[Rfam]
RNA sequence: CACCAGGUUGAUUCUGCCUGACGUGGAUGCUCGCCUUAAAGACUAAGCCAUGCAAGUUUGCGAGCUGAGCAGCGAACGGCUCAGUAAAACAGGGCACUCUAACGCACGGAAGAGAUAACCACGGGAAACUGUGGCUGAGAAGUGCGAUGAGGCUCUGACCUAUUAGUUUGUCGGUACGGUAAGUGCGUACGGAGACGAUGAUGGGUAACGGGGGAUCAAGUCCGAUUCCGGAGAGGGAGCCUGAGAGAUGGCUGCCACGUCCAAGGACGGCAGCAGGCGCGCAACUUACCCAAUGAGGAUUGAGGUAGUGACGAGGCGUAGAUUGUGAGUUGAGAGUAAAGAACUUAACGAGAGCGACUGGAGGGCAAGUCUGGUGCCAGCAGCCGCGGUAAUUCCAGCUCCAGGGGCGUAUGUGUGUGUUGCUG
Numbered sequence: 001c002a003c004c005a006g007g008u009u010g011a012u013u014c015u016g017c018c019u020g021a022c023g024u025g026g027a028u029g030c031u032c033g034c035c036u037u038a039a040a041g042a043c044u045a046a047g048c049c050a051u052g053c054a055a056g057u058u059u060g061c062g063a064g065c066u067g068a069g070c071a072g073c074g075a076a077c078g079g080c081u082c083a084g085u086a087a088a089a090c091a092g093g094g095c096a097c098u099c100u101a102a103c104g105c106a107c108g109g110a111a112g113a114g115a116u117a118a119c120c121a122c123g124g125g126a127a128a129c130u131g132u133g134g135c136u137g138a139g140a141a142g143u144g145c146g147a148u149g150a151g152g153c154u155c156u157g158a159c160c161u162a163u164u165a166g167u168u169u170g171u172c173g174g175u176a177c178g179g180u181a182a183g184u185g186c187g188u189a190c191g192g193a194g195a196c197g198a199u200g201a202u203g204g205g206u207a208a209c210g211g212g213g214g215a216u217c218a219a220g221u222c223c224g225a226u227u228c229c230g231g232a233g234a235g236g237g238a239g240c241c242u243g244a245g246a247g248a249u250g251g252c253u254g255c256c257a258c259g260u261c262c263a264a265g266g267a268c269g270g271c272a273g274c275a276g277g278c279g280c281g282c283a284a285c286u287u288a289c290c291c292a293a294u295g296a297g298g299a300u301u302g303a304g305g306u307a308g309u310g311a312c313g314a315g316g317c318g319u320a321g322a323u324u325g326u327g328a329g330u331u332g333a334g335a336g337u338a339a340a341g342a343a344c345u346u347a348a349c350g351a352g353a354g355c356g357a358c359u360g361g362a363g364g365g366c367a368a369g370u371c372u373g374g375u376g377c378c379a380g381c382a383g384c385c386g387c388g389g390u391a392a393u394u395c396c397a398g399c400u401c402c403a404g405g406g407g408c409g410u411a412u413g414u415g416u417g418u419g420u421u422g423c424u425g
Stems, first nucleotide, its partner, number of pairs: 004020005022415004027410005033317005040309001041280001047278003051275003056073002059071003080233003090157006098150002103146005119134006159205003166196003171193002174190005209230004213223004235256002238253003258269004286307001288306003294302003329349006358404006371398004380387002
Shown here is a 425-nucleotide part of an RNA from Parathelohania anophelis, a member of the family "Microsporidia small subunit ribosomal RNA". Taxonomically the source falls in Parathelohania (Eukaryota, Opisthokonta, Microsporidia, Pansporoblastina).